[Rfam]
RNA sequence: GUAUCACCAAGAGUUCCCCCAAACACUUCACAUUACACCUAAUCUUAAACAGAGUUUGAAUGGUGCCUCAUGUGAAGUGCUUGAAGGGAACUCAUGGUAACAC
Numbered sequence: 001g002u003a004u005c006a007c008c009a010a011g012a013g014u015u016c017c018c019c020c021a022a023a024c025a026c027u028u029c030a031c032a033u034u035a036c037a038c039c040u041a042a043u044c045u046u047a048a049a050c051a052g053a054g055u056u057u058g059a060a061u062g063g064u065g066c067c068u069c070a071u072g073u074g075a076a077g078u079g080c081u082u083g084a085a086g087g088g089a090a091c092u093c094a095u096g097g098u099a100a101c102a103c
Stems, first nucleotide, its partner, number of pairs: 006098004011093008019083001021082002024079010035068001
Dot-bracket structure: .....((((.(((((((((.((.((((((((((.(................................).)))))))))).)))..)))))))).)))).....

The record is a 103-nucleotide RNA sequence from Sorghum bicolor, which matches "mir-395 microRNA precursor family" in Rfam.
Its family is annotated with RISC complex and miRNA-mediated post-transcriptional gene silencing in the Gene Ontology.
For this family Rfam cites "Computational Identification of Plant MicroRNAs and Their Targets, Including a Stress-Induced miRNA" (Jones-Rhoades and Bartel, Mol Cell, 2004).
The base pairs follow the family's consensus structure, which was predicted with PFOLD.
A search with the family's covariance model found it, with a score of 64 bits.